Background
Shown here is a 487-nucleotide part of an RNA from Cladonia borealis, a member of the family "Eukaryotic large subunit ribosomal RNA". The family's consensus secondary structure is taken from published work.

RNA sequence: AUAUAAGAACUGGCUUGUGGCAGCCAAGCGUUCAUAGCGACGUUGCUUUUUGAUCCUUCGAUGUCGGCUCUUCCUAUCAUACCGAAGCAGAAUUCGGUAAGCGUUGGAUUGUUCACCCACUAGGAAUCUCCUUAUUGGUGGGUAUAGUUAAAGAUGCGUGCAUCUUUAGUCUAGUCGGGCGCGAAAUGCCCGGCCAGGCACCUGGCUCAGGGGAAGCUCUCGGGGGUAAUCACCCUGGGAGUAUCCCUAAUGGAGGUUUCAUUCGAACCCCAUGUAGAGCGCGGAAAGGUGUCGGUCGAUCUAUAAGCAUUGAUUUCUCGGACGUGCCACGGAACGUAGCUGAUACGUUUACAAGAUCUGAACCUAAAAGCUUAGGCGAGGAUCUUUGGAUUGGUAGCUUCGGUGGGCUUUACCCCCUAAGCCUCCAUCCCCAUCCAGUGAAUAGGGAACGUGAGCUGGGUUUAGACCGUCGUGAGACAGGUUAGUU
Numbered sequence: 001a002u003a004u005a006a007g008a009a010c011u012g013g014c015u016u017g018u019g020g021c022a023g024c025c026a027a028g029c030g031u032u033c034a035u036a037g038c039g040a041c042g043u044u045g046c047u048u049u050u051u052g053a054u055c056c057u058u059c060g061a062u063g064u065c066g067g068c069u070c071u072u073c074c075u076a077u078c079a080u081a082c083c084g085a086a087g088c089a090g091a092a093u094u095c096g097g098u099a100a101g102c103g104u105u106g107g108a109u110u111g112u113u114c115a116c117c118c119a120c121u122a123g124g125a126a127u128c129u130c131c132u133u134a135u136u137g138g139u140g141g142g143u144a145u146a147g148u149u150a151a152a153g154a155u156g157c158g159u160g161c162a163u164c165u166u167u168a169g170u171c172u173a174g175u176c177g178g179g180c181g182c183g184a185a186a187u188g189c190c191c192g193g194c195c196a197g198g199c200a201c202c203u204g205g206c207u208c209a210g211g212g213g214a215a216g217c218u219c220u221c222g223g224g225g226g227u228a229a230u231c232a233c234c235c236u237g238g239g240a241g242u243a244u245c246c247c248u249a250a251u252g253g254a255g256g257u258u259u260c261a262u263u264c265g266a267a268c269c270c271c272a273u274g275u276a277g278a279g280c281g282c283g284g285a286a287a288g289g290u291g292u293c294g295g296u297c298g299a300u301c302u303a304u305a306a307g308c309a310u311u312g313a314u315u316u317c318u319c320g321g322a323c324g325u326g327c328c329a330c331g332g333a334a335c336g337u338a339g340c341u342g343a344u345a346c347g348u349u350u351a352c353a354a355g356a357u358c359u360g361a362a363c364c365u366a367a368a369a370g371c372u373u374a375g376g377c378g379a380g381g382a383u384c385u386u387u388g389g390a391u392u393g394g395u396a397g398c399u400u401c402g403g404u405g406g407g408c409u410u411u412a413c414c415c416c417c418u419a420a421g422c423c424u425c426c427a428u429c430c431c432c433a434u435c436c437a438g439u440g441a442a443u444a445g446g447g448a449a450c451g452u453g454a455g456c457u458g459g460g461u462u463u464a465g466a467c468c469g470u471c472g473u474g475a476g477a478c479a480g481g482u483u484a485g486u487u
Stems, first nucleotide, its partner, number of pairs: 013054001015052001017051001019047006028038002065459001066457004070451001071448005078103001081098006105437005465483004469478003
The organism belongs to Cladonia, within Eukaryota.